[Rfam]
RNA: mir-33 microRNA precursor family
Organism: Armadillidium nasatum
RNA sequence: UGAGAAUGCAUUGUAGUUGCAUUGCAGAAUUGUGAAGAAAUUGCAAUGCAUUUGCAAUGCUUUUCUCA
Number, nucleotide and partner (000 for none) at each position: 001u068002g067003a066004g065005a000006a064007u000008g060009c059010a058011u057012u056013g055014u054015a053016g052017u000018u000019g049020c000021a047022u046023u045024g044025c043026a042027g041028a000029a000030u000031u000032g000033u000034g000035a000036a000037g000038a000039a000040a000041u027042u026043g025044c024045a023046a022047u021048g000049c019050a000051u000052u016053u015054g014055c013056a012057a011058u010059g009060c008061u000062u000063u000064u006065c004066u003067c002068a001